[Rfam]
RNA sequence: CUGUAACGCACUUCUUGGGCGUUUCCUCCCUAGACUCGGGCCGGUGGUUUUCCACCGGCCUUUUUUUAUGGACCG
Numbered sequence: 001c002u003g004u005a006a007c008g009c010a011c012u013u014c015u016u017g018g019g020c021g022u023u024u025c026c027u028c029c030c031u032a033g034a035c036u037c038g039g040g041c042c043g044g045u046g047g048u049u050u051u052c053c054a055c056c057g058g059c060c061u062u063u064u065u066u067u068a069u070g071g072a073c074c075g
Base pairs, nucleotide, nucleotide: 008020009019011017039060040059041058042057043056044055045054046053047052

Shown here is a 75-nucleotide RNA sequence from Skermanella aerolata, a member of the family "Makes More Granules Regulator RNA (mmgR)". Rfam 15.1 lists 1,791 matches to the family in 918 species. Rfam classes the family as a small RNA. SuhB later renamed mmgR (makes more granules regulator) was a putative non-coding RNA found multiple times in the Agrobacterium tumefaciens genome and related alpha-proteobacteria. Lineage of the source: Bacteria > Pseudomonadota > Alphaproteobacteria > Azospirillaceae > Skermanella. Clan: suhB sRNA clan.